[Rfam]
RNA sequence: GGCAGAGUAGAUGUAAGUGCGUUAAGUGCUAGAUGGACGGGAAGUUGCCACUAGACGAAAAAUCUCUUUAGAUUUGCGGUACUUAUGUCGCAUUCCGCUGCC
Numbered sequence: 001g002g003c004a005g006a007g008u009a010g011a012u013g014u015a016a017g018u019g020c021g022u023u024a025a026g027u028g029c030u031a032g033a034u035g036g037a038c039g040g041g042a043a044g045u046u047g048c049c050a051c052u053a054g055a056c057g058a059a060a061a062a063u064c065u066c067u068u069u070a071g072a073u074u075u076g077c078g079g080u081a082c083u084u085a086u087g088u089c090g091c092a093u094u095c096c097g098c099u100g101c102c
Stems, first nucleotide, its partner, number of pairs: 001102005010089010020078003026056002029054004034050003040095003044091001060075004
This 102-nucleotide RNA sequence from Cellulosilyticum lentocellum belongs to the Rfam family "THF (Tetrahydrofolate) riboswitch aptamer". About the family: Tetrahydrofolate (THF) riboswitch was first reported for Ames et al. as an RNA motif in 5' untranslated (5'-UTR)regions of folate transport and biosynthesis genes in Firmicutes genomes. The organism belongs to Cellulosilyticum lentocellum, within Bacteria. The family has 101 seed sequences and 747 matches in Rfam 15.1.